[Rfam]
RNA sequence: UUUUUUAGGGAAAAUUUGGCCUUCCAACAAAGGGAAGCCAGGGAAUUUUCUC
Numbered sequence: 001u002u003u004u005u006u007a008g009g010g011a012a013a014a015u016u017u018g019g020c021c022u023u024c025c026a027a028c029a030a031a032g033g034g035a036a037g038c039c040a041g042g043g044a045a046u047u048u049u050c051u052c
Base pairs, nucleotide, nucleotide: 008052009051010050011049012048013047014046015042016041017040018039019038020037022035023034024033025032